[Rfam]
RNA sequence: AGUGCUUUCCCGUUCACUUAAAUCGAACGGU
Number, nucleotide and partner (000 for none) at each position: 001a018002g017003u016004g015005c000006u000007u000008u000009c000010c030011c029012g028013u027014u025015c004016a003017c002018u001019u000020a000021a000022a000023u000024c000025g014026a000027a013028c012029g011030g010031u000
The record is a 31-nucleotide sequence from Tobamovirus viridimaculae, which matches "Pseudoknot of upstream pseudoknot domain (UPD) of the 3'UTR" in Rfam. Taxonomically the source falls in Tobamovirus viridimaculae (Viruses, Orthornavirae, Alsuviricetes, Virgaviridae). For this family Rfam cites "Five pseudoknots are present at the 204 nucleotides long 3' noncoding region of tobacco mosaic virus RNA" (van Belkum et al., Nucleic Acids Res, 1985). Rfam's curators put it in the seed alignment. Pairs were carried over by alignment from the consensus structure, which is taken from published work.